[Rfam]
RNA sequence: CUCCCGCUCUCCCCGCACAGGAGGGCGGAGUGAGGCACCGGCGCUCUCUGCCCUGACUGCACCGGAGCCUCCACUCGGCCGCUGGGACCGCACACCCGCCGGCCGAUGCAACCCGGGCUGCGGUGCCGGGAGGGCUGAGGGUCCCUCCCAGGCGC
Numbered sequence: 001c002u003c004c005c006g007c008u009c010u011c012c013c014c015g016c017a018c019a020g021g022a023g024g025g026c027g028g029a030g031u032g033a034g035g036c037a038c039c040g041g042c043g044c045u046c047u048c049u050g051c052c053c054u055g056a057c058u059g060c061a062c063c064g065g066a067g068c069c070u071c072c073a074c075u076c077g078g079c080c081g082c083u084g085g086g087a088c089c090g091c092a093c094a095c096c097c098g099c100c101g102g103c104c105g106a107u108g109c110a111a112c113c114c115g116g117g118c119u120g121c122g123g124u125g126c127c128g129g130g131a132g133g134g135c136u137g138a139g140g141g142u143c144c145c146u147c148c149c150a151g152g153c154g155c
Stems, first nucleotide, its partner, number of pairs: 004028003008024005032071005038065004043060002045056002075106007084097003111124003114120002128149007
This 155-nucleotide RNA from Streptomyces sp. YIM 130001 belongs to the Rfam family "Streptomyces sRNA scr5239". The literature on the family includes a 2015 paper in PLoS One by Vockenhuber et al., "Identification of metE as a second target of the sRNA scr5239 in Streptomyces coelicolor". Pairs were carried over by alignment from the consensus structure, which is taken from published work. It is annotated as a small RNA.